Background: Shown here is a 419-nucleotide RNA from Deinococcus peraridilitoris, a member of the family "Bacterial RNase P class A".
[Rfam]
RNA sequence: CUGGGAAGGGACACGGUCGCGCGUUCGGGCGUCAGCGUCCGGCGUGAGGAAAGUCCGGGCACCGCAGGGCAGGAUGCCAGCUAACGGCUGGGCGGCGAGCAAAAGGCCAGUCCUCCAAGGAGAACCGGGCACAUGCGAAGCCGACGGAAAGUGCCACAGAAACGAGACCGCUGCUUUUCGGCUUUGGCCGGUGGCAGCAAGGGUGAAACGGUGCGGUAAGAGCGCACCAGUCUUCUGGGAGACCAGAAGAGCUGGUAAACCCCAUCCGGUGCAAGGCCCGACAGUGGGGGAGGAGCGGCCCGCUCCCCUGAUCCCCAGGAUGGCCGCUUGAGGCGCCCGGCGACGGGCGUCCCAGAGAGAUGAUCGUGGCACUGGCGAACGUCAGUGAACAGAACCCGGCUUACUACCUUCCCAGCCCC
Numbered sequence: 001c002u003g004g005g006a007a008g009g010g011a012c013a014c015g016g017u018c019g020c021g022c023g024u025u026c027g028g029g030c031g032u033c034a035g036c037g038u039c040c041g042g043c044g045u046g047a048g049g050a051a052a053g054u055c056c057g058g059g060c061a062c063c064g065c066a067g068g069g070c071a072g073g074a075u076g077c078c079a080g081c082u083a084a085c086g087g088c089u090g091g092g093c094g095g096c097g098a099g100c101a102a103a104a105g106g107c108c109a110g111u112c113c114u115c116c117a118a119g120g121a122g123a124a125c126c127g128g129g130c131a132c133a134u135g136c137g138a139a140g141c142c143g144a145c146g147g148a149a150a151g152u153g154c155c156a157c158a159g160a161a162a163c164g165a166g167a168c169c170g171c172u173g174c175u176u177u178u179c180g181g182c183u184u185u186g187g188c189c190g191g192u193g194g195c196a197g198c199a200a201g202g203g204u205g206a207a208a209c210g211g212u213g214c215g216g217u218a219a220g221a222g223c224g225c226a227c228c229a230g231u232c233u234u235c236u237g238g239g240a241g242a243c244c245a246g247a248a249g250a251g252c253u254g255g256u257a258a259a260c261c262c263c264a265u266c267c268g269g270u271g272c273a274a275g276g277c278c279c280g281a282c283a284g285u286g287g288g289g290g291a292g293g294a295g296c297g298g299c300c301c302g303c304u305c306c307c308c309u310g311a312u313c314c315c316c317a318g319g320a321u322g323g324c325c326g327c328u329u330g331a332g333g334c335g336c337c338c339g340g341c342g343a344c345g346g347g348c349g350u351c352c353c354a355g356a357g358a359g360a361u362g363a364u365c366g367u368g369g370c371a372c373u374g375g376c377g378a379a380c381g382u383c384a385g386u387g388a389a390c391a392g393a394a395c396c397c398g399g400c401u402u403a404c405u406a407c408c409u410u411c412c413c414a415g416c417c418c419c
Stems, first nucleotide, its partner, number of pairs: 001415009012368007020046006027039002051402003055399005060271004067301004072267005077091005092145001093143004146262002151260002153256003168202002170198006177191002210228006230252001231250008275325004285317006292306005332351008

The source organism's lineage runs through Bacteria, Thermotogati, Deinococcales, Deinococcaceae and Deinococcus peraridilitoris. The match comes from Rfam's covariance-model search (254 bits).